[Rfam]
RNA: 6S / SsrS RNA
RNA sequence: UACAAGCUACGAUGUUCGUAUGACAUUAAGUUUUAACUCUAACCUUAUUAUAGGGAGUUUUACAUUGAAACCGGAAUGUCAGGCCUUCCUCGAAAGGAUAACAGGAAAGUUUCUGCAAACACCCACUUGGAGAAGUGGUGGUUUAAAACUUUUUAUAACGAGUACGGCAUUUGUGGCUACAAU
Number, nucleotide and partner (000 for none) at each position: 001u000002a000003c000004a000005a178006g177007c176008u175009a174010c173011g172012a170013u169014g168015u167016u000017c166018g165019u164020a000021u000022g000023a000024c000025a000026u000027u000028a000029a150030g149031u148032u147033u000034u145035a144036a143037c141038u140039c000040u000041a000042a000043c000044c000045u000046u000047a000048u000049u000050a000051u000052a000053g124054g123055g122056a000057g120058u119059u118060u117061u000062a000063c000064a114065u000066u000067g113068a112069a111070a110071c109072c000073g000074g000075a000076a000077u000078g102079u101080c000081a000082g000083g000084c097085c096086u095087u094088c000089c000090u000091c000092g000093a000094a087095a086096g085097g084098a000099u000100a000101a079102c078103a000104g000105g000106a000107a000108a000109g071110u070111u069112u068113c067114u064115g000116c000117a060118a059119a058120c057121a000122c055123c054124c053125a000126c000127u000128u000129g000130g000131a000132g000133a000134a000135g000136u000137g000138g000139u000140g038141g037142u000143u036144u035145a034146a000147a032148a031149c030150u029151u000152u000153u000154u000155a000156u000157a000158a000159c000160g000161a000162g000163u000164a019165c018166g017167g015168c014169a013170u012171u000172u011173g010174u009175g008176g007177c006178u005179a000180c000181a000182a000183u000